[Rfam]
Rfam assigns this 94-nucleotide sequence from Brassica oleracea to the family "Small nucleolar RNA Z122". Rfam links the family to the GO terms RNA processing and nucleolus. It is annotated as a C/D-box small nucleolar RNA.
RNA sequence: UAUGGGAAGUGAUGAUAAGAUAUAUCAAUAUGUCAUAGGCAUAUAUGCAUAUGCAAUGCUGAACAACAUAUUUGCACGUCAGUCUGAUCCCAUU
Dot-bracket structure: .((((((................................................................................)))))).